[Rfam]
RNA sequence: CGUCGGCCCUCCAAAGGCCGGCACCGAAGAGGCUUGUUUCUCUUUGCCCGGCGUGCGGUGGGGGUCCUCCCUUCCAAUCCACGGCAGCUUCCGGGUGCUCUGCGCCCGCCUGGAUCGACGCGUCUCCAAAGCGCGUGGGUC
Numbered sequence: 001c002g003u004c005g006g007c008c009c010u011c012c013a014a015a016g017g018c019c020g021g022c023a024c025c026g027a028a029g030a031g032g033c034u035u036g037u038u039u040c041u042c043u044u045u046g047c048c049c050g051g052c053g054u055g056c057g058g059u060g061g062g063g064g065u066c067c068u069c070c071c072u073u074c075c076a077a078u079c080c081a082c083g084g085c086a087g088c089u090u091c092c093g094g095g096u097g098c099u100c101u102g103c104g105c106c107c108g109c110c111u112g113g114a115u116c117g118a119c120g121c122g123u124c125u126c127c128a129a130a131g132c133g134c135g136u137g138g139g140u141c
Base pairs, nucleotide, nucleotide: 002022003021004020005019006018007017008016031048032047033046055134056133057132103117104116107113